[Rfam]
RNA sequence: UGUCGAAGUUCCAUCUACAAAUGGAUAAGACUUUGGUCUUAGUGUGUAUGAGCUUUUGAAAAAAAAAAGGAGCAAUGCCAACCCUCUUGAUAGAACAAGAAAUUGGUGAUUGCUCCUUUUUU
Numbered sequence: 001u002g003u004c005g006a007a008g009u010u011c012c013a014u015c016u017a018c019a020a021a022u023g024g025a026u027a028a029g030a031c032u033u034u035g036g037u038c039u040u041a042g043u044g045u046g047u048a049u050g051a052g053c054u055u056u057u058g059a060a061a062a063a064a065a066a067a068a069g070g071a072g073c074a075a076u077g078c079c080a081a082c083c084c085u086c087u088u089g090a091u092a093g094a095a096c097a098a099g100a101a102a103u104u105g106g107u108g109a110u111u112g113c114u115c116c117u118u119u120u121u122u
Base pairs, nucleotide, nucleotide: 010025011024012023013022014021066119067118068117069116070115071114072113073112074111075110076109081104085100086099087098088097

A member of the RNA family "Plastid-psbA-1 3UTR RNA" from Flacourtia indica, 122 nucleotides long. It is annotated as a cis-regulatory element. The organism belongs to Flacourtia, within Eukaryota. Rfam's curators write: Plastid psbA-1 is a non-coding RNA (ncRNA) present in plastids. It was identified in inverted repeat sequences in the 3 prime untranslate region (3UTR) of photosystem II quinone-binding protein (psbA). For this family Rfam cites "Retrograde signaling in plants: A critical review focusing on the GUN pathway and beyond" (Richter et al., Plant Commun, 2023).